[Rfam]
Shown here is a 73-nucleotide RNA sequence from Brettanomyces bruxellensis, a member of the family "tRNA". The family has 954 seed sequences and 5,335,975 matches in Rfam 15.1. It is annotated as a transfer RNA. A search with the family's covariance model found it, with a score of 68 bits. Rfam's curators write: Transfer RNA (tRNA) molecules are approximately 80 nucleotides in length. Their secondary structure includes four short double-helical elements and three loops (D, anti-codon, and T loops).
RNA sequence: GGGCGUGUAGCGCAGUUGGUAGCGCGUCUGCCUUGCAAGCAGAAGGUCACUGGUUCAAAUCCUGUCUUGUCCA
Dot-bracket structure: (((((.(..((((........)))).(((((.......))))).....((.((.......)).))).))))).